[Rfam]
Shown here is a 153-nucleotide RNA from Enterobacter cloacae, a member of the family "EFASI RNA". The sequence is in the family's curated seed alignment.
RNA sequence: UCGGCACGACAUCGAUGGCGACACCGGCGAGCAGCUGGUGUGUGGAGGCAGUCUGAUGAAUAUCAGCCCGGCGAAAGCCGCGAACAGGUCAGAGACCUGGGGAGCCUUGCAAUAACUCAACAUUUCGCCGCCCCGAUGCACAGAUGUCUGCCG
Numbered sequence: 001u002c003g004g005c006a007c008g009a010c011a012u013c014g015a016u017g018g019c020g021a022c023a024c025c026g027g028c029g030a031g032c033a034g035c036u037g038g039u040g041u042g043u044g045g046a047g048g049c050a051g052u053c054u055g056a057u058g059a060a061u062a063u064c065a066g067c068c069c070g071g072c073g074a075a076a077g078c079c080g081c082g083a084a085c086a087g088g089u090c091a092g093a094g095a096c097c098u099g100g101g102g103a104g105c106c107u108u109g110c111a112a113u114a115a116c117u118c119a120a121c122a123u124u125u126c127g128c129c130g131c132c133c134c135g136a137u138g139c140a141c142a143g144a145u146g147u148c149u150g151c152c153g
Stems, first nucleotide, its partner, number of pairs: 002153004008148006019044002021041007045108004053066005085100001086098005

The organism belongs to Enterobacter cloacae subsp. cloacae, within Bacteria.